This 352-nucleotide RNA sequence from Aerolutibacter daejeonensis belongs to the Rfam family "Bacterial RNase P class A".
RNA sequence: GGAGCCGGCCAGACAGUCGCGUCAUUCGAAAGGAUGCCGAGGAAAGUCCGGGCUCCACAGGGCACGGUGCCAGGUAACGCCUGGGCGGCGCGAGCCGACGGAAAGUGCAACAGAGAGCAGACCGCCGAACGGUCCUUCGGGAUGCGUGGCAAGGGUGAAACGGUGCGGUAAGAGCGCACCGCGAGUCUGGCAACAGACCGGCACGGCAAACCCCACCGGGAGCAAGACCAAAUAGGGAGGCAAUGCCGCGGCCCGCGGUGUCUCCGGGUAGGUUGCUUGAGCGUAUCGGUGACGAUGCGCCUAGAGGAAUGACUGUCCACGACAGAACCCGGCUUAUCGGCCGGCUCCGCCA
Numbered sequence: 001g002g003a004g005c006c007g008g009c010c011a012g013a014c015a016g017u018c019g020c021g022u023c024a025u026u027c028g029a030a031a032g033g034a035u036g037c038c039g040a041g042g043a044a045a046g047u048c049c050g051g052g053c054u055c056c057a058c059a060g061g062g063c064a065c066g067g068u069g070c071c072a073g074g075u076a077a078c079g080c081c082u083g084g085g086c087g088g089c090g091c092g093a094g095c096c097g098a099c100g101g102a103a104a105g106u107g108c109a110a111c112a113g114a115g116a117g118c119a120g121a122c123c124g125c126c127g128a129a130c131g132g133u134c135c136u137u138c139g140g141g142a143u144g145c146g147u148g149g150c151a152a153g154g155g156u157g158a159a160a161c162g163g164u165g166c167g168g169u170a171a172g173a174g175c176g177c178a179c180c181g182c183g184a185g186u187c188u189g190g191c192a193a194c195a196g197a198c199c200g201g202c203a204c205g206g207c208a209a210a211c212c213c214c215a216c217c218g219g220g221a222g223c224a225a226g227a228c229c230a231a232a233u234a235g236g237g238a239g240g241c242a243a244u245g246c247c248g249c250g251g252c253c254c255g256c257g258g259u260g261u262c263u264c265c266g267g268g269u270a271g272g273u274u275g276c277u278u279g280a281g282c283g284u285a286u287c288g289g290u291g292a293c294g295a296u297g298c299g300c301c302u303a304g305a306g307g308a309a310u311g312a313c314u315g316u317c318c319a320c321g322a323c324a325g326a327a328c329c330c331g332g333c334u335u336a337u338c339g340g341c342c343g344g345c346u347c348c349g350c351c352a
Stems, first nucleotide, its partner, number of pairs: 001348010011337001012317007020039002023036005044335003048332005053222004060254004065218005070084005085099001086097004100213002105211002107207002122154002124150003130146002132143004162180006181202001182200002185198005226274004236265006245259005281300008
Description
It is annotated as a ribozyme.